Record summary: This 102-nucleotide RNA from Jeotgalibacillus alimentarius belongs to the Rfam family "Purine riboswitch aptamer". A search with the family's covariance model found it, with a score of 81 bits. Rfam describes the family as follows. Riboswitches are metabolite binding domains within certain messenger RNAs that serve as precision sensors for their corresponding targets. Rfam links the family to the GO term purine nucleobase biosynthetic process.

[Rfam]
RNA sequence: GACAGCUUCAUAACACCCCUUCAUAUAUGUCCGAUAAUAUGGGUCGGAUGUUUCUACCGGAUCACCACAAAUGGUCUGACUAUGAAGGCGGUCUUUUAUUAA
Numbered sequence: 001g002a003c004a005g006c007u008u009c010a011u012a013a014c015a016c017c018c019c020u021u022c023a024u025a026u027a028u029g030u031c032c033g034a035u036a037a038u039a040u041g042g043g044u045c046g047g048a049u050g051u052u053u054c055u056a057c058c059g060g061a062u063c064a065c066c067a068c069a070a071a072u073g074g075u076c077u078g079a080c081u082a083u084g085a086a087g088g089c090g091g092u093c094u095u096u097u098a099u100u101a102a
Stems, first nucleotide, its partner, number of pairs: 018088008029049007058078007